[Rfam]
RNA sequence: CCAGCCACGUCCCCUUAUCACUUCUCCAGCCGGCUGUGCCCGAGUGCUGGACGGAGAACUGAUAAGGGCAGGUGCCUGU
Numbered sequence: 001c002c003a004g005c006c007a008c009g010u011c012c013c014c015u016u017a018u019c020a021c022u023u024c025u026c027c028a029g030c031c032g033g034c035u036g037u038g039c040c041c042g043a044g045u046g047c048u049g050g051a052c053g054g055a056g057a058a059c060u061g062a063u064a065a066g067g068g069c070a071g072g073u074g075c076c077u078g079u
Stems, first nucleotide, its partner, number of pairs: 012068009022058006030050002
Shown here is a 79-nucleotide RNA from Myotis myotis, a member of the family "mir-184 microRNA precursor family". Rfam links the family to the GO terms gene silencing by miRNA and RISC complex. Pairs were carried over by alignment from the consensus structure, which was predicted with PFOLD. For this family Rfam cites "The developmental miRNA profiles of zebrafish as determined by small RNA cloning" (Chen et al., Genes Dev, 2005).